The record is a 131-nucleotide RNA from Cyprinus carpio, which matches "Small nucleolar RNA SNORA57" in Rfam. For this family Rfam cites "Identification of 13 novel human modification guide RNAs" (Vitali et al., Nucleic Acids Res, 2003). About the family: U99 belongs to the H/ACA class of snoRNAs which are thought to guide the sites of modification of uridines to pseudouridines, the target for this family is unknown. Taxonomically the source falls in Cyprinus carpio (Eukaryota, Actinopterygii, Teleostei, Osteoglossocephalai). Rfam classes the family as an H/ACA-box small nucleolar RNA. The family's consensus secondary structure was predicted with PFOLD.

[Rfam]
Nucleotides: 131
Base pairs, nucleotide, nucleotide: 001053002052003051004050005049013041014040015039016038017037020034021033022032023031065123066122067121068120069119084105085104086103087102088101
Number, partner (000 for none) and nucleotide at each position: 001053c002052c003051u004050c005049c006000c007000u008000c009000u010000u011000g012000g013041c014040a015039u016038g017037c018000u019000c020034g021033g022032g023031u024000u025000u026000g027000u028000u029000g030000u031023a032022c033021c034020c035000u036000u037017g038016u039015g040014u041013g042000u043000a044000u045000g046000u047000a048000c049005g050004g051003a052002g053001g054000a055000a056000u057000a058000u059000u060000a061000g062000a063000g064000c065123c066122a067121g068120u069119g070000c071000a072000a073000u074000g075000u076000c077000u078000u079000c080000g081000g082000u083000g084105c085104c086103a087102g088101c089000g090000u091000g092000c093000u094000c095000c096000c097000a098000u099000c100000g101088g102087c103086u104085g105084g106000u107000u108000c109000u110000a111000u112000c113000c114000u115000c116000a117000a118000u119069c120068a121067c122066u123065g124000g125000a126000a127000c128000a129000c130000g131000u